[Rfam]
Group II catalytic intron D1-D4-3: a 172-nucleotide RNA from Acetobacterium paludosum.

RNA sequence: UCCCCGGCGACGGGGAAUCUGAAGGAAGCCGGCGGCAAACUUCCGGUCUGACGAACAGAAAUCACAUCAGGCAUCAUCAAAUGGGUAAGGUUGCUUAACAAACCGAAGCCCCAAAACUACUCGGAAGUUGAUGGUGUAAAUGUGGCAGAUAGAUGGAAGGAAAGAUUGCGUU
Numbered sequence: 001u002c003c004c005c006g007g008c009g010a011c012g013g014g015g016a017a018u019c020u021g022a023a024g025g026a027a028g029c030c031g032g033c034g035g036c037a038a039a040c041u042u043c044c045g046g047u048c049u050g051a052c053g054a055a056c057a058g059a060a061a062u063c064a065c066a067u068c069a070g071g072c073a074u075c076a077u078c079a080a081a082u083g084g085g086u087a088a089g090g091u092u093g094c095u096u097a098a099c100a101a102a103c104c105g106a107a108g109c110c111c112c113a114a115a116a117c118u119a120c121u122c123g124g125a126a127g128u129u130g131a132u133g134g135u136g137u138a139a140a141u142g143u144g145g146c147a148g149a150u151a152g153a154u155g156g157a158a159g160g161a162a163a164g165a166u167u168g169c170g171u172u
Base pairs, nucleotide, nucleotide: 001016002015003014004013005012006011028172030170031169036164040159041158042157043156044155045154046150047149048148049147050146062145063144064143065142066141071137072136073135075133076132077131078130079129080128083111084110085109086108089104090103091102092101